[Rfam]
RNA sequence: UUGCCAGCUAUGUCAAGUGGGUACAUCGUUCAUUAGUCAAUUGGUAGACAAUAGGCCCUUAACUCCUAGUUAUCCAGGUUCGAUCCCUGGAUGAACACCCUCGUCCCACUGACGCUGCCUGGCUUUUUU
Numbered sequence: 001u002u003g004c005c006a007g008c009u010a011u012g013u014c015a016a017g018u019g020g021g022u023a024c025a026u027c028g029u030u031c032a033u034u035a036g037u038c039a040a041u042u043g044g045u046a047g048a049c050a051a052u053a054g055g056c057c058c059u060u061a062a063c064u065c066c067u068a069g070u071u072a073u074c075c076a077g078g079u080u081c082g083a084u085c086c087c088u089g090g091a092u093g094a095a096c097a098c099c100c101u102c103g104u105c106c107c108a109c110u111g112a113c114g115c116u117g118c119c120u121g122g123c124u125u126u127u128u129u
Stems, first nucleotide, its partner, number of pairs: 003123005012113004017109004025084004

Rfam assigns this 129-nucleotide sequence from Amphimedon queenslandica to the family "Vault RNA". The family's RNA type in Rfam is non-coding RNA gene. The match comes from Rfam's covariance-model search (37 bits). The base pairs follow the family's consensus structure, which is taken from published work.